RNA sequence: GUAUUCUAUGGGGGGGGGGUAUGACCUUUAAAGAAUAACUUAAGUGCUAAUUAAUCUCACAUACCCUAUGUAAUUCGUGCAUUACUGCUAGCCAACAUGAAUAUUAUAUA
Number, nucleotide and partner (000 for none) at each position: 001g000002u000003a000004u000005u101006c000007u099008a098009u097010g096011g000012g093013g092014g000015g000016g088017g000018g086019g085020u000021a000022u000023g000024a000025c000026c000027u000028u000029u043030a000031a041032a040033g039034a000035a000036u000037a000038a000039c033040u032041u031042a000043a029044g064045u063046g000047c000048u059049a000050a057051u000052u000053a000054a000055u000056c000057u050058c000059a048060c000061a000062u000063a045064c044065c000066c000067u000068a082069u081070g080071u079072a078073a000074u000075u000076c000077g000078u072079g071080c070081a069082u068083u000084a000085c019086u018087g000088c016089u000090a000091g000092c013093c012094a000095a000096c010097a009098u008099g007100a000101a005102u000103a000104u000105u000106a000107u000108a000109u000110a000